A member of the RNA family "Small nucleolar RNA SNORD22" from Castor canadensis, 126 nucleotides long. A reference for the family is Tycowski et al. (1994), "Requirement for intron-encoded U22 small nucleolar RNA in 18S ribosomal RNA maturation", Science. Rfam classes the family as a C/D-box small nucleolar RNA. A search with the family's covariance model found it, with a score of 116 bits. The family's consensus secondary structure was predicted with PFOLD. Rfam links the family to the GO terms RNA processing and nucleolus.

RNA sequence: UGCCAAUGAGGAGAAAACAUCCUGUCUUACUCCCCGUUCUUGCCCCAGAGCCAGUAAUGGUGAACCCACUGGGGAAGCUGGGAGAGAGGAUGGAGUACUUGUUCCAUAAAGAACUGUCUGAGGUAC
Numbered sequence: 001u002g003c004c005a006a007u008g009a010g011g012a013g014a015a016a017a018c019a020u021c022c023u024g025u026c027u028u029a030c031u032c033c034c035c036g037u038u039c040u041u042g043c044c045c046c047a048g049a050g051c052c053a054g055u056a057a058u059g060g061u062g063a064a065c066c067c068a069c070u071g072g073g074g075a076a077g078c079u080g081g082g083a084g085a086g087a088g089g090a091u092g093g094a095g096u097a098c099u100u101g102u103u104c105c106a107u108a109a110a111g112a113a114c115u116g117u118c119u120g121a122g123g124u125a126c
Base pairs, nucleotide, nucleotide: 001125002124003123004122